[Rfam]
RNA sequence: AAUUGUAGGGUUUCAGGCCUUUAUAACAUGGAUUCUUGUCGUACGCCCACGUAUGGCAAACUUCAUGCUUGGCCAACCAAUUCUUGUGCGCAAGCACCAAAUGAUAUAGCCAGAGAGCCAGUCAGAGGGCGCUACCAUGCAAACUAGGGCUGGCUACUCUAGCACAGAAUCACAUCUCGAUAAGCAACAGUGCUAGAAGGUUGCUUAUACCAUUUAAUAUGCCGAGGCCACGCGGAGUACGAUCGAGGGUACAGCAUAAUCUCAACUUUUGUUGAGCCACAAUUUUAAUCCUAAUUGGAGAAGGCCAAAGGACUGUACUACUUUUGUAGGUGUAGCAGUCGCCCAAUGGGAAAGCGCCAACUAGGUUACAAUUGUGGUGGGGACAAAUUAGGGGAAAUUAAAUUGGCUUAUAGGGGGGAUGGAGC
Numbered sequence: 001a002a003u004u005g006u007a008g009g010g011u012u013u014c015a016g017g018c019c020u021u022u023a024u025a026a027c028a029u030g031g032a033u034u035c036u037u038g039u040c041g042u043a044c045g046c047c048c049a050c051g052u053a054u055g056g057c058a059a060a061c062u063u064c065a066u067g068c069u070u071g072g073c074c075a076a077c078c079a080a081u082u083c084u085u086g087u088g089c090g091c092a093a094g095c096a097c098c099a100a101a102u103g104a105u106a107u108a109g110c111c112a113g114a115g116a117g118c119c120a121g122u123c124a125g126a127g128g129g130c131g132c133u134a135c136c137a138u139g140c141a142a143a144c145u146a147g148g149g150c151u152g153g154c155u156a157c158u159c160u161a162g163c164a165c166a167g168a169a170u171c172a173c174a175u176c177u178c179g180a181u182a183a184g185c186a187a188c189a190g191u192g193c194u195a196g197a198a199g200g201u202u203g204c205u206u207a208u209a210c211c212a213u214u215u216a217a218u219a220u221g222c223c224g225a226g227g228c229c230a231c232g233c234g235g236a237g238u239a240c241g242a243u244c245g246a247g248g249g250u251a252c253a254g255c256a257u258a259a260u261c262u263c264a265a266c267u268u269u270u271g272u273u274g275a276g277c278c279a280c281a282a283u284u285u286u287a288a289u290c291c292u293a294a295u296u297g298g299a300g301a302a303g304g305c306c307a308a309a310g311g312a313c314u315g316u317a318c319u320a321c322u323u324u325u326g327u328a329g330g331u332g333u334a335g336c337a338g339u340c341g342c343c344c345a346a347u348g349g350g351a352a353a354g355c356g357c358c359a360a361c362u363a364g365g366u367u368a369c370a371a372u373u374g375u376g377g378u379g380g381g382g383a384c385a386a387a388u389u390a391g392g393g394g395a396a397a398u399u400a401a402a403u404u405g406g407c408u409u410a411u412a413g414g415g416g417g418g419a420u421g422g423a424g425c
Stems, first nucleotide, its partner, number of pairs: 035094005112160004116155008126145002131140002173421006180208009210406003213402006219257004227250003231245002233241002268387006277377008286368001290365004295360004311340006318329004342350003
RNA: Deltacoronavirus 3'UTR
Organism: Sparrow coronavirus HKU17